[Rfam]
RNA: Histone 3' UTR stem-loop
Organism: Odocoileus virginianus
RNA sequence: CCAAAGGCUCUUUUCAGAGCCACCACUUUUUCUGUGAAAGAGUUGU
Number, nucleotide and partner (000 for none) at each position: 001c000002c000003a000004a000005a000006g021007g020008c019009u018010c017011u016012u000013u000014u000015c000016a011017g010018a009019g008020c007021c006022a000023c000024c000025a000026c000027u000028u000029u000030u000031u000032c000033u000034g000035u000036g000037a000038a000039a000040g000041a000042g000043u000044u000045g000046u000